RNA sequence: CCGUGCAGCCGGGGAGAUAGCGGUGCCCUGUACCUGCAAUCCGCUACAGCAGGGGUGAUGUCUUUCCUAGGGAAGCCCGCAGAGAGGCUGCCCGGUAUAAGUGACGUUGAUAUCUUGGUCCUACGCAAUAGGAAUCUGUGAACCAUGUCAGGUCGGGAACGAAGCAGCAUUAAGCAGAAGCUCUUAUGUGACGUGGGGGCGCCGGGGUUGAGUUGGCUGUAUCGGUAACGCUCUUUGUGCCUUCACGAAGAAAGACGCACGG
Numbered sequence: 001c002c003g004u005g006c007a008g009c010c011g012g013g014g015a016g017a018u019a020g021c022g023g024u025g026c027c028c029u030g031u032a033c034c035u036g037c038a039a040u041c042c043g044c045u046a047c048a049g050c051a052g053g054g055g056u057g058a059u060g061u062c063u064u065u066c067c068u069a070g071g072g073a074a075g076c077c078c079g080c081a082g083a084g085a086g087g088c089u090g091c092c093c094g095g096u097a098u099a100a101g102u103g104a105c106g107u108u109g110a111u112a113u114c115u116u117g118g119u120c121c122u123a124c125g126c127a128a129u130a131g132g133a134a135u136c137u138g139u140g141a142a143c144c145a146u147g148u149c150a151g152g153u154c155g156g157g158a159a160c161g162a163a164g165c166a167g168c169a170u171u172a173a174g175c176a177g178a179a180g181c182u183c184u185u186a187u188g189u190g191a192c193g194u195g196g197g198g199g200c201g202c203c204g205g206g207g208u209u210g211a212g213u214u215g216g217c218u219g220u221a222u223c224g225g226u227a228a229c230g231c232u233c234u235u236u237g238u239g240c241c242u243u244c245a246c247g248a249a250g251a252a253a254g255a256c257g258c259a260c261g262g
Base pairs, nucleotide, nucleotide: 001262002261003260004259005258006257008056009055010054011029012028013027014026016024018022033053034052035051036050037049062254063253064252065251066250068248070246072244073243074242075241078239079238080237081236082235083234084233085232086231089227090226093224094223095222096221097220098219101217102216103214104213105212112208113207114206115205116204117203118202119201120197121196122195123194124193125192126188127187129186130185131184132183133182135178136177137176138175139174145170146169147168148167153162154161155160
Overview: This 262-nucleotide sequence from Firmicutes bacterium CAG:882 belongs to the Rfam family "Bacterial large signal recognition particle RNA". Gene Ontology terms of the family: SRP-dependent cotranslational protein targeting to membrane, signal sequence recognition and signal recognition particle, plasma membrane targeting. The base pairs follow the family's consensus structure, which is taken from published work. It is annotated as a non-coding RNA gene. Lineage of the source: Bacteria > Bacillati > Bacillota.